Description
The family of this 102-nucleotide RNA sequence from Anaerobacillus alkaliphilus is "Purine riboswitch aptamer". The family is grouped with related families in Rfam's "Purine riboswitches". Lineage of the source: Bacteria > Bacillati > Bacillota > Bacilli > Anaerobacillus. The match comes from Rfam's covariance-model search (88 bits).
RNA sequence: AAUGUGAACUUAAUAAGGUUUCGUAUAUACUCAGGAAUAUGGCCUGGGCGUCUCUACCGAGCUACCGUAAAUAGCUUGACUACGAAGAAAGUACUUAAUAUA
Numbered sequence: 001a002a003u004g005u006g007a008a009c010u011u012a013a014u015a016a017g018g019u020u021u022c023g024u025a026u027a028u029a030c031u032c033a034g035g036a037a038u039a040u041g042g043c044c045u046g047g048g049c050g051u052c053u054c055u056a057c058c059g060a061g062c063u064a065c066c067g068u069a070a071a072u073a074g075c076u077u078g079a080c081u082a083c084g085a086a087g088a089a090a091g092u093a094c095u096u097a098a099u100a101u102a
Stems, first nucleotide, its partner, number of pairs: 019087007030048006058078007